[Rfam]
RNA: Eukaryotic large subunit ribosomal RNA, nucleotides 3745 to 4137
RNA sequence: GGAGUGUUAUCGUAAUAGUAAUUGAACUUAGUACGAGAGGAACCGUUCAUUCAGAUAUUUGGUAUUUGCGGCUGUCCGAUCGGGCAAUGCCGCGAAGCUAUCAUCUGCUGGAUUAUGGCUGAACGCCUCUAAGUCAGAAUCCGUGCUAGAAACGAUGAUGUUGGUCCCGCACAUAAUAGUUGUGUUGAAAUAGAGCUUUGCUCGUGAACCAAAUCUGGUGGGCUAGGCUGUCUGAGCGGAAAUGCUUGGGCGGUUUGUCUACGUAUUGUAAUCAUAAUAUGGGCGGGGGUGAAUCCUUUGCAGACGACUUGAAUGGGAACGGGGUACUGUAAGCGGUAGAGUAGCCUUGUUGCUACGAUCCGCUGAGGUUAAGCCCUUGUUCUAAAGAUUUGU
Numbered sequence: 001g002g003a004g005u006g007u008u009a010u011c012g013u014a015a016u017a018g019u020a021a022u023u024g025a026a027c028u029u030a031g032u033a034c035g036a037g038a039g040g041a042a043c044c045g046u047u048c049a050u051u052c053a054g055a056u057a058u059u060u061g062g063u064a065u066u067u068g069c070g071g072c073u074g075u076c077c078g079a080u081c082g083g084g085c086a087a088u089g090c091c092g093c094g095a096a097g098c099u100a101u102c103a104u105c106u107g108c109u110g111g112a113u114u115a116u117g118g119c120u121g122a123a124c125g126c127c128u129c130u131a132a133g134u135c136a137g138a139a140u141c142c143g144u145g146c147u148a149g150a151a152a153c154g155a156u157g158a159u160g161u162u163g164g165u166c167c168c169g170c171a172c173a174u175a176a177u178a179g180u181u182g183u184g185u186u187g188a189a190a191u192a193g194a195g196c197u198u199u200g201c202u203c204g205u206g207a208a209c210c211a212a213a214u215c216u217g218g219u220g221g222g223c224u225a226g227g228c229u230g231u232c233u234g235a236g237c238g239g240a241a242a243u244g245c246u247u248g249g250g251c252g253g254u255u256u257g258u259c260u261a262c263g264u265a266u267u268g269u270a271a272u273c274a275u276a277a278u279a280u281g282g283g284c285g286g287g288g289g290u291g292a293a294u295c296c297u298u299u300g301c302a303g304a305c306g307a308c309u310u311g312a313a314u315g316g317g318a319a320c321g322g323g324g325u326a327c328u329g330u331a332a333g334c335g336g337u338a339g340a341g342u343a344g345c346c347u348u349g350u351u352g353c354u355a356c357g358a359u360c361c362g363c364u365g366a367g368g369u370u371a372a373g374c375c376c377u378u379g380u381u382c383u384a385a386a387g388a389u390u391u392g393u
Stems, first nucleotide, its partner, number of pairs: 006159008016148004021051001023049005052107005060100003067094005073086005109143003116136005166287005172281001291391005297311001300308001316383006322376003326369002333363004338359001341356005